[Rfam]
RNA sequence: GCCGAUUAAUCGGGUCAUUGUAGAAGGGUGCUCGUCGCGACCCCUGCCAGCCCUUUUCGGGGCUGCAAUUCUACA
Numbered sequence: 001g002c003c004g005a006u007u008a009a010u011c012g013g014g015u016c017a018u019u020g021u022a023g024a025a026g027g028g029u030g031c032u033c034g035u036c037g038c039g040a041c042c043c044c045u046g047c048c049a050g051c052c053c054u055u056u057u058c059g060g061g062g063c064u065g066c067a068a069u070u071c072u073a074c075a
Stems, first nucleotide, its partner, number of pairs: 012043005019075007026038001028036001048065007